[Rfam]
The family of this 58-nucleotide RNA sequence from Streptomyces sp. NBRC 110611 is "msiK RNA". The family's consensus secondary structure is taken from published work. Taxonomically the source falls in Streptomyces (Bacteria, Bacillati, Actinomycetota, Streptomycetaceae).
RNA sequence: ACCUCACUCCUUUUACUCGGAUCGUCCGGCACGUUCCUGCCGGUGAAGGGACUCUCAC
Numbered sequence: 001a002c003c004u005c006a007c008u009c010c011u012u013u014u015a016c017u018c019g020g021a022u023c024g025u026c027c028g029g030c031a032c033g034u035u036c037c038u039g040c041c042g043g044u045g046a047a048g049g050g051a052c053u054c055u056c057a058c
Base pairs, nucleotide, nucleotide: 009050010049011048012047013046014045015044026043027042028041029040030039031038